[Rfam]
RNA sequence: GGCUGAUUAUGUAGGGACGUGCGACGGAGUCCCUCAGCGUCAGCCUAACUCUUCGAAAAGAGACCUCCAUCGCACCGCAGUGAUUCUGUGCAAUCUUGCGGCCCAAUCACGGGAGAGAACGCUGAGCGUAACAAC
Numbered sequence: 001g002g003c004u005g006a007u008u009a010u011g012u013a014g015g016g017a018c019g020u021g022c023g024a025c026g027g028a029g030u031c032c033c034u035c036a037g038c039g040u041c042a043g044c045c046u047a048a049c050u051c052u053u054c055g056a057a058a059a060g061a062g063a064c065c066u067c068c069a070u071c072g073c074a075c076c077g078c079a080g081u082g083a084u085u086c087u088g089u090g091c092a093a094u095c096u097u098g099c100g101g102c103c104c105a106a107u108c109a110c111g112g113g114a115g116a117g118a119a120c121g122c123u124g125a126g127c128g129u130a131a132c133a134a135c
Stems, first nucleotide, its partner, number of pairs: 001045007010036002075101006082095003
Rfam assigns this 135-nucleotide sequence from Corynebacterium jeikeium to the family "atpB RNA". Rfam's curators put it in the seed alignment. The organism belongs to Corynebacterium jeikeium, within Bacteria.